[Rfam]
RNA sequence: CGCGAGGUACCGCCUAAUCGAACUCCCGUGAGGGACUCGAACCGGGAACCCACCGUUUUCUGGGGUGAAUCCCGACGGAGCGCACACGCGUGACGCCGGGUAGGGCUGAUCUUCCCAGCCCGAACCCGUCAGCUAACUCGGUCGGCGGAGGAAUGGAAGAAAG
Numbered sequence: 001c002g003c004g005a006g007g008u009a010c011c012g013c014c015u016a017a018u019c020g021a022a023c024u025c026c027c028g029u030g031a032g033g034g035a036c037u038c039g040a041a042c043c044g045g046g047a048a049c050c051c052a053c054c055g056u057u058u059u060c061u062g063g064g065g066u067g068a069a070u071c072c073c074g075a076c077g078g079a080g081c082g083c084a085c086a087c088g089c090g091u092g093a094c095g096c097c098g099g100g101u102a103g104g105g106c107u108g109a110u111c112u113u114c115c116c117a118g119c120c121c122g123a124a125c126c127c128g129u130c131a132g133c134u135a136a137c138u139c140g141g142u143c144g145g146c147g148g149a150g151g152a153a154u155g156g157a158a159g160a161a162a163g
Stems, first nucleotide, its partner, number of pairs: 011147004018040003041142006051062002063127003071100004103121004
RNA: c-di-AMP riboswitch aptamer (ydaO/yuaA leader)